[Rfam]
RNA sequence: UUGUCAGGCUCUGAACUUUAGGGCAGAUUAUAGCAUGAUGAUUGGAGUUCACAUGAUAUGUGAUUAAUGUCUCUGUGGAAUCAGGACUCGCAAAACCUGAUUGCUCCUAUCUGAU
Numbered sequence: 001u002u003g004u005c006a007g008g009c010u011c012u013g014a015a016c017u018u019u020a021g022g023g024c025a026g027a028u029u030a031u032a033g034c035a036u037g038a039u040g041a042u043u044g045g046a047g048u049u050c051a052c053a054u055g056a057u058a059u060g061u062g063a064u065u066a067a068u069g070u071c072u073c074u075g076u077g078g079a080a081u082c083a084g085g086a087c088u089c090g091c092a093a094a095a096c097c098u099g100a101u102u103g104c105u106c107c108u109a110u111c112u113g114a115u
Stems, first nucleotide, its partner, number of pairs: 005026001007024001009023006055073002058070003061066001077104001079102007
Dot-bracket structure: ....(.(.((((((...))))))).)............................((.((((....).))).))...(.(((((((..........))))))).)...........

Shown here is a 115-nucleotide sequence from Spermophilus dauricus, a member of the family "U8 small nucleolar RNA". NCBI's taxonomy places the organism under Eukaryota, Metazoa, Tetrapoda, Marmotini, Spermophilus. The literature on the family includes a 2001 paper in Gene by Peculis et al., "The U8 snoRNA gene family: identification and characterization of distinct, functional U8 genes in Xenopus". Pairs were carried over by alignment from the consensus structure, which is taken from published work. The family has 55 seed sequences and 1,597 matches in Rfam 15.1.